[Rfam]
RNA: permuted transfer-messenger RNA
Organism: Candidatus Ryanbacteria bacterium RIFCSPHIGHO2_01_FULL_48_27
RNA sequence: GAUAGUUCCUGAUUAGCAGAAUAAGCGUGACGGACCCGGGGGCAGUGCCCGGCGCCUCCACCACCAAACACCGAUAGGAUGUAGCUGCGGAGCCAGUGUAAUGGCGUUGAACCAGCUAAACAGUAUCCAUCAUAAGGGUUGCAGAUGGUGCGGGCCAGCAUCGACGCGGUUUGCGGGGGCGCAGUUAGCCCCAAACUGUUUGCAGAGUACCUUUCGGUGCUUGGUUAUGGGGGCGAAACAGGAUUGACGUGCGUAGUAAAAGCUAGUCGCGUAGGGGAUUAUCAACUACAAAUGCCAACGACAACAAGGCAUUUGCUCUCGCUGCCUAA
Numbered sequence: 001g002a003u004a005g006u007u008c009c010u011g012a013u014u015a016g017c018a019g020a021a022u023a024a025g026c027g028u029g030a031c032g033g034a035c036c037c038g039g040g041g042g043c044a045g046u047g048c049c050c051g052g053c054g055c056c057u058c059c060a061c062c063a064c065c066a067a068a069c070a071c072c073g074a075u076a077g078g079a080u081g082u083a084g085c086u087g088c089g090g091a092g093c094c095a096g097u098g099u100a101a102u103g104g105c106g107u108u109g110a111a112c113c114a115g116c117u118a119a120a121c122a123g124u125a126u127c128c129a130u131c132a133u134a135a136g137g138g139u140u141g142c143a144g145a146u147g148g149u150g151c152g153g154g155c156c157a158g159c160a161u162c163g164a165c166g167c168g169g170u171u172u173g174c175g176g177g178g179g180c181g182c183a184g185u186u187a188g189c190c191c192c193a194a195a196c197u198g199u200u201u202g203c204a205g206a207g208u209a210c211c212u213u214u215c216g217g218u219g220c221u222u223g224g225u226u227a228u229g230g231g232g233g234c235g236a237a238a239c240a241g242g243a244u245u246g247a248c249g250u251g252c253g254u255a256g257u258a259a260a261a262g263c264u265a266g267u268c269g270c271g272u273a274g275g276g277g278a279u280u281a282u283c284a285a286c287u288a289c290a291a292a293u294g295c296c297a298a299c300g301a302c303a304a305c306a307a308g309g310c311a312u313u314u315g316c317u318c319u320c321g322c323u324g325c326c327u328a329a
Stems, first nucleotide, its partner, number of pairs: 001267001003265003026253003030250003036052005053235007